[Rfam]
RNA sequence: CUACUGUACUGGCUGGUGAAUGGCUCGGCUCGAGAGCCGAUGACGGACGUGCCAAGCUGCGAAAAGCCUGAGGGAGCCGCACGGAGGCUAAGAACUCAGGAUCUCCGAAUGGGAAUCCCCAUUGCGAUUACGAGGUAUCUCGUAAUCGGGAACGCCCCGAAUUGAAACAUCUUAGUAGGGGCAGGAACAGAAAGCAACCGCGAUAUCGUUAGUAACCGCGAGUGAACACGACACAGUCCAAACCGAAUCCGCAAGGAAAUGUGGUGUUUCGGACCAACAAUCACGGACCGCACGAUACCGAGAAAUCUCCUGGAACGGAGUACGACACAGGGUGACAGUCCCGUAUCGUCAUCACGCGAUCCCGCGUUGACUCCAGAGUCGCAAGGGUUGGCUAUCCCUUGUUAAUUCCGCAGACAUCAACUGCGAAGACUACACACUCCUCGAGACCGAUAGCGAACAAGUAGCGUGAGCGAACGCUGCAAAGCACCCCGAACAGGGCGGUGCAAUAGGGCCUGAACUCAGUCAGUGAUAGAAC
Numbered sequence: 001c002u003a004c005u006g007u008a009c010u011g012g013c014u015g016g017u018g019a020a021u022g023g024c025u026c027g028g029c030u031c032g033a034g035a036g037c038c039g040a041u042g043a044c045g046g047a048c049g050u051g052c053c054a055a056g057c058u059g060c061g062a063a064a065a066g067c068c069u070g071a072g073g074g075a076g077c078c079g080c081a082c083g084g085a086g087g088c089u090a091a092g093a094a095c096u097c098a099g100g101a102u103c104u105c106c107g108a109a110u111g112g113g114a115a116u117c118c119c120c121a122u123u124g125c126g127a128u129u130a131c132g133a134g135g136u137a138u139c140u141c142g143u144a145a146u147c148g149g150g151a152a153c154g155c156c157c158c159g160a161a162u163u164g165a166a167a168c169a170u171c172u173u174a175g176u177a178g179g180g181g182c183a184g185g186a187a188c189a190g191a192a193a194g195c196a197a198c199c200g201c202g203a204u205a206u207c208g209u210u211a212g213u214a215a216c217c218g219c220g221a222g223u224g225a226a227c228a229c230g231a232c233a234c235a236g237u238c239c240a241a242a243c244c245g246a247a248u249c250c251g252c253a254a255g256g257a258a259a260u261g262u263g264g265u266g267u268u269u270c271g272g273a274c275c276a277a278c279a280a281u282c283a284c285g286g287a288c289c290g291c292a293c294g295a296u297a298c299c300g301a302g303a304a305a306u307c308u309c310c311u312g313g314a315a316c317g318g319a320g321u322a323c324g325a326c327a328c329a330g331g332g333u334g335a336c337a338g339u340c341c342c343g344u345a346u347c348g349u350c351a352u353c354a355c356g357c358g359a360u361c362c363c364g365c366g367u368u369g370a371c372u373c374c375a376g377a378g379u380c381g382c383a384a385g386g387g388u389u390g391g392c393u394a395u396c397c398c399u400u401g402u403u404a405a406u407u408c409c410g411c412a413g414a415c416a417u418c419a420a421c422u423g424c425g426a427a428g429a430c431u432a433c434a435c436a437c438u439c440c441u442c443g444a445g446a447c448c449g450a451u452a453g454c455g456a457a458c459a460a461g462u463a464g465c466g467u468g469a470g471c472g473a474a475c476g477c478u479g480c481a482a483a484g485c486a487c488c489c490c491g492a493a494c495a496g497g498g499c500g501g502u503g504c505a506a507u508a509g510g511g512c513c514u515g516a517a518c519u520c521a522g523u524c525a526g527u528g529a530u531a532g533a534a535c
Stems, first nucleotide, its partner, number of pairs: 007528010022513001023477002027448002029445006035438002044107004048061003067100006076088003111120003127146008153184001154182005164171002194201002206231004215223002235431004243264003275369004285361002288358001299348003305321001307320004324328001330342003381402007409425005464471002
The record is a 535-nucleotide part of an RNA from Haloquadratum walsbyi, which matches "Archaeal large subunit ribosomal RNA" in Rfam. The literature on the family includes a 2002 paper in BMC Bioinformatics by Cannone et al., "The comparative RNA web (CRW) site: an online database of comparative sequence and structure information for ribosomal, intron, and other RNAs". The family is grouped with related families in Rfam's "LSU clan".